[Rfam]
RNA sequence: UUCUAUCUUCGGGGCAGGGUGUAAUUCCCGACCGACGGUGAUAAGUGUUAAAUCACUUUUAGUCCGUGACCCGCUAUUAUAGCGGUUGACCUGGUGUAAAUCCGGGACCGACAGUUAAAGUCUGGAUGGGAGAAGAUACGG
Numbered sequence: 001u002u003c004u005a006u007c008u009u010c011g012g013g014g015c016a017g018g019g020u021g022u023a024a025u026u027c028c029c030g031a032c033c034g035a036c037g038g039u040g041a042u043a044a045g046u047g048u049u050a051a052a053u054c055a056c057u058u059u060u061a062g063u064c065c066g067u068g069a070c071c072c073g074c075u076a077u078u079a080u081a082g083c084g085g086u087u088g089a090c091c092u093g094g095u096g097u098a099a100a101u102c103c104g105g106g107a108c109c110g111a112c113a114g115u116u117a118a119a120g121u122c123u124g125g126a127u128g129g130g131a132g133a134a135g136a137u138a139c140g141g
Stems, first nucleotide, its partner, number of pairs: 004138007017029003031121002033110002035067004062108002071085002090106005112124003